[Rfam]
A member of the RNA family "Small nucleolar RNA SNORD79" from Tychaedon coryphoeus, 76 nucleotides long. The match comes from Rfam's covariance-model search (69 bits). For this family Rfam cites "Classification of gas5 as a multi-small-nucleolar-RNA (snoRNA) host gene and a member of the 5'-terminal oligopyrimidine gene family reveals common features of snoRNA host genes" (Smith and Steitz, Mol Cell Biol, 1998). The base pairs follow the family's consensus structure, which was predicted with PFOLD. Rfam describes the family as follows. snoRNA U79 or Z22 is found in intron 7 of the gas5 gene in humans and is also present in mice. Lineage of the source: Eukaryota > Teleostomi > Sauria > Archosauria > Tychaedon.
RNA sequence: UACUGUUUGUGAUGAUUUCUAAGCAAUGGGAAUCUCUCUGAAAGAGGCUGCGGAGAACUCUUGUGCUGAAACAGUA
Dot-bracket structure: (((((((..............................................................)))))))